Description
The record is a 253-nucleotide sequence from Diversispora epigaea, which matches "ACEA small nucleolar RNA U3" in Rfam. It is annotated as a C/D-box small nucleolar RNA. Rfam's curators write: Small nucleolar RNAs (snoRNAs) are involved in the processing and modification of rRNA in the nucleolus. There are two main classes of snoRNAs: the box C/D class, and the box H/ACA class. The family is grouped with related families in Rfam's "U3 clan".
RNA sequence: UCGACUGUACUUUACAGGAUCUGUAUAUAGUCAGUCACCCGUCUUCGUUUUCCAACGUAGACACACAAUUUCCACUGGAUGAUGAUUUGUAGUGCACCUUUCGUAAAGGGAAGUGUGGACGUUUAUUGAAGGGUAGAAAAUUAUUUGGCUUCGGUCGGGUGGUUUUUUAUUUUUCGGUAUGCCCCAGUUGAUGAUCUUGCUAAUUCCCUUAUUCCGAGGGGUUAGUGAGAAAGGAUGCACAGUCUGACAGUUC
Numbered sequence: 001u002c003g004a005c006u007g008u009a010c011u012u013u014a015c016a017g018g019a020u021c022u023g024u025a026u027a028u029a030g031u032c033a034g035u036c037a038c039c040c041g042u043c044u045u046c047g048u049u050u051u052c053c054a055a056c057g058u059a060g061a062c063a064c065a066c067a068a069u070u071u072c073c074a075c076u077g078g079a080u081g082a083u084g085a086u087u088u089g090u091a092g093u094g095c096a097c098c099u100u101u102c103g104u105a106a107a108g109g110g111a112a113g114u115g116u117g118g119a120c121g122u123u124u125a126u127u128g129a130a131g132g133g134u135a136g137a138a139a140a141u142u143a144u145u146u147g148g149c150u151u152c153g154g155u156c157g158g159g160u161g162g163u164u165u166u167u168u169a170u171u172u173u174u175c176g177g178u179a180u181g182c183c184c185c186a187g188u189u190g191a192u193g194a195u196c197u198u199g200c201u202a203a204u205u206c207c208c209u210u211a212u213u214c215c216g217a218g219g220g221g222u223u224a225g226u227g228a229g230a231a232a233g234g235a236u237g238c239a240c241a242g243u244c245u246g247a248c249a250g251u252u253c
Base pairs, nucleotide, nucleotide: 003038006033009031010030011029016026018024041062042061043060044059046057047056048055049054074251075250076249077248092240093239094238095237096236097234098233099232100231101230102229106198107197108196109195116186117185118184120181121180122179201225203223206220207219208218